This 75-nucleotide RNA from Myotis lucifugus belongs to the Rfam family "mir-9223 microRNA precursor family". Rfam links the family to the GO terms RISC complex and miRNA-mediated post-transcriptional gene silencing. The family's consensus secondary structure was predicted with RNAalifold. The source organism's lineage runs through Eukaryota, Opisthokonta, Deuterostomia, Teleostomi and Myotis.

RNA sequence: GGUGGUUCUCGGGUGACACACCCCAUAAUCUGGCUCCCUCCUGUCUGAUUCCAGGUGGGUCCCCUGAGAACUCCA
Numbered sequence: 001g002g003u004g005g006u007u008c009u010c011g012g013g014u015g016a017c018a019c020a021c022c023c024c025a026u027a028a029u030c031u032g033g034c035u036c037c038c039u040c041c042u043g044u045c046u047g048a049u050u051c052c053a054g055g056u057g058g059g060u061c062c063c064c065u066g067a068g069a070a071c072u073c074c075a
Base pairs, nucleotide, nucleotide: 002074005071006070007069008068009067010066011065012064013063015061016060017059019057020056021055022054027050028049029048030047032045033044